[Rfam]
Nucleotides: 110
Base pairs, nucleotide, nucleotide: 003046004045005044006043007042008041009040010039014037015036016035017034018033019032047105048104049103050102051101052100053099054098055097056096057095
Number, partner (000 for none) and nucleotide at each position: 001000a002000a003046a004045c005044c006043c007042c008041a009040u010039g011000a012000u013000g014037u015036u016035c017034a018033g019032g020000u021000c022000c023000g024000c025000c026000g027000c028000a029000u030000c031000u032019c033018c034017u035016g036015g037014g038000u039010c040009g041008u042007g043006g044005g045004g046003u047105g048104g049103c050102c051101g052100g053099u054098c055097g056096a057095g058000a059000u060000c061000g062000a063000u064000g065000c066000a067000c068000a069000g070000u071000g072000g073000c074000a075000u076000c077000c078000u079000c080000g081000u082000u083000c084000c085000a086000c087000g088000c089000a090000u091000u092000c093000a094000u095057u096056u097055u098054g099053a100052u101051c102050g103049g104048c105047c106000u107000u108000c109000g110000a